This 159-nucleotide RNA from Desulfosporosinus acididurans belongs to the Rfam family "M-box riboswitch aptamer (ykoK leader)". About the family: M-box riboswitch, also know as ykoK leader is described as a metaloregulatory RNA that sense divalent metals and function as a genetic control element of genes related to divalent metal transport in bacteria. It was first reported upstream of the B.subtilis ykoK gene and genes with related functions in other bacteria. The pairing is the family consensus, mapped onto this sequence. NCBI's taxonomy places the organism under Bacteria, Clostridia, Eubacteriales, Desulfitobacteriaceae, Desulfosporosinus.

RNA sequence: AUAAUUACUCGGUAGGUGAGGCUACCGCAAGGAUAUGGAUUGCUGCCGCGGAGAGUUGGAGACAACUCGAGAAGGUCAACAGGAUAUGUCGAAAAACAAGGCAUAACCUAAUGUAAUUUCACUGCCUUGCAGAGCUAAAACUUGAACGGGAUUUAACAA
Number, nucleotide and partner (000 for none) at each position: 001a000002u000003a000004a000005u155006u000007a153008c000009u151010c150011g147012g000013u099014a000015g142016g141017u140018g000019a000020g136021g135022c134023u000024a000025c132026c000027g130028c129029a128030a127031g126032g125033a000034u000035a000036u000037g000038g000039a117040u116041u115042g114043c113044u000045g000046c074047c000048g000049c071050g000051g000052a000053g000054a000055g066056u065057u064058g063059g000060a000061g000062a000063c058064a057065a056066c055067u000068c000069g000070a000071g049072a000073a000074g046075g000076u000077c000078a000079a000080c000081a000082g108083g107084a000085u105086a000087u000088g102089u101090c100091g000092a000093a000094a000095a000096a000097c000098a000099a013100g090101g089102c088103a000104u000105a085106a000107c083108c082109u000110a000111a000112u000113g043114u042115a041116a040117u039118u000119u000120c000121a000122c000123u000124g000125c032126c031127u030128u029129g028130c027131a000132g025133a000134g022135c021136u020137a000138a000139a000140a017141c016142u015143u000144g000145a000146a000147c011148g000149g000150g010151a009152u000153u007154u000155a005156a000157c000158a000159a000